Source information:
Rfam assigns this 214-nucleotide sequence from Trebonia kvetii to the family "Actinobacteria sRNA Ms_IGR-5". The family's RNA type in Rfam is small RNA.
[Rfam]
RNA sequence: ACGCGGAGAGGAGGUGGUCCUAGGUAAUGAGUGCUUAUAGGACUUGCGAGGUGGCUGCCGCUUAGGCUGCCGUCCCCGCUGUGCGGGUCCGCGUGGCGGACCCCGGCCUAAGGGCGGCGGCGGGCAAAAUUAGGGCUUCCACCGGAUCCCCGGGUUGACCGGCCUUGUCCAGUCGGUCCCGCCUACGCGCGGAGUCGCCCGGGGUUCUUUAAUU
Numbered sequence: 001a002c003g004c005g006g007a008g009a010g011g012a013g014g015u016g017g018u019c020c021u022a023g024g025u026a027a028u029g030a031g032u033g034c035u036u037a038u039a040g041g042a043c044u045u046g047c048g049a050g051g052u053g054g055c056u057g058c059c060g061c062u063u064a065g066g067c068u069g070c071c072g073u074c075c076c077c078g079c080u081g082u083g084c085g086g087g088u089c090c091g092c093g094u095g096g097c098g099g100a101c102c103c104c105g106g107c108c109u110a111a112g113g114g115c116g117g118c119g120g121c122g123g124g125c126a127a128a129a130u131u132a133g134g135g136c137u138u139c140c141a142c143c144g145g146a147u148c149c150c151c152g153g154g155u156u157g158a159c160c161g162g163c164c165u166u167g168u169c170c171a172g173u174c175g176g177u178c179c180c181g182c183c184u185a186c187g188c189g190c191g192g193a194g195u196c197g198c199c200c201g202g203g204g205u206u207c208u209u210u211a212a213u214u
Stems, first nucleotide, its partner, number of pairs: 013059006060125004066121002069118004075113002144208003148204008158177006